This 394-nucleotide sequence from Chloroherpeton thalassium belongs to the Rfam family "Bacterial RNase P class A".
Ribonuclease P (RNase P) is a ubiquitous endoribonuclease, found in archaea, bacteria and eukarya as well as chloroplasts and mitochondria.
Rfam classes the family as a ribozyme.
It is one of the family's seed sequences.
RNA sequence: GGCUGUAUCUUGGCAAUCGCUGUAUUGCAUAGGCAAUGCAGAGGAAAGUCCGAACAUCAUAGGGCAGGGUGCCGGACAAGAUGUUUCAUCAAGUUCGGGCAAAAAGGCUGAAGAGCCUUUUUGACAGAAAGUGCAACAGAAAGCAAACCGCCAUUCCGUUGGAAUUGGUAAGGGUGAAACGGUGGUGUAAGAGACCACCAGGCAAUGUGGUAACACGUUGUGCUCGGUAAACCUCCCCGGUGCAAGGCUAAGUAAGAAAGCUUCCUUUUGGGAAAGAGCUGCCCGCUCAAUUUACUUCGGUAAAAGUUUUCGGGUGAGCCGCAUUAGAUAAAUGGUUGCCGACUGCUUCAUUAUUGAAGUAGUACAGAAUUCGGCUUAAAAGAUGCAGCUUUGC
Numbered sequence: 001g002g003c004u005g006u007a008u009c010u011u012g013g014c015a016a017u018c019g020c021u022g023u024a025u026u027g028c029a030u031a032g033g034c035a036a037u038g039c040a041g042a043g044g045a046a047a048g049u050c051c052g053a054a055c056a057u058c059a060u061a062g063g064g065c066a067g068g069g070u071g072c073c074g075g076a077c078a079a080g081a082u083g084u085u086u087c088a089u090c091a092a093g094u095u096c097g098g099g100c101a102a103a104a105a106g107g108c109u110g111a112a113g114a115g116c117c118u119u120u121u122u123g124a125c126a127g128a129a130a131g132u133g134c135a136a137c138a139g140a141a142a143g144c145a146a147a148c149c150g151c152c153a154u155u156c157c158g159u160u161g162g163a164a165u166u167g168g169u170a171a172g173g174g175u176g177a178a179a180c181g182g183u184g185g186u187g188u189a190a191g192a193g194a195c196c197a198c199c200a201g202g203c204a205a206u207g208u209g210g211u212a213a214c215a216c217g218u219u220g221u222g223c224u225c226g227g228u229a230a231a232c233c234u235c236c237c238c239g240g241u242g243c244a245a246g247g248c249u250a251a252g253u254a255a256g257a258a259a260g261c262u263u264c265c266u267u268u269u270g271g272g273a274a275a276g277a278g279c280u281g282c283c284c285g286c287u288c289a290a291u292u293u294a295c296u297u298c299g300g301u302a303a304a305a306g307u308u309u310u311c312g313g314g315u316g317a318g319c320c321g322c323a324u325u326a327g328a329u330a331a332a333u334g335g336u337u338g339c340c341g342a343c344u345g346c347u348u349c350a351u352u353a354u355u356g357a358a359g360u361a362g363u364a365c366a367g368a369a370u371u372c373g374g375c376u377u378a379a380a381a382g383a384u385g386c387a388g389c390u391u392u393g394c
Stems, first nucleotide, its partner, number of pairs: 001390010011379001012340007020041009046377003050374005055242004064298001067238003071235001072098005099125001100123010126234002131232002133228002148173002150169004155164001156162002181199006201223001202221008246320004256311006291304005
Dot-bracket structure: ((((((((((((((((((.(((((((((....)))))))))....[[[.[[[[[((((.....[..(((.((((((.................)))))(((((((((((....)))))))))).)((...((((.............((((((.(((...)).).))))..)).......((((((.......)))))).(((((((((....)))))))).)...))..))))))))))))...((((......((((((.............................(((((..].))))).)))))).....)))).............))))))).............................]]]]]]]].).))))))))))....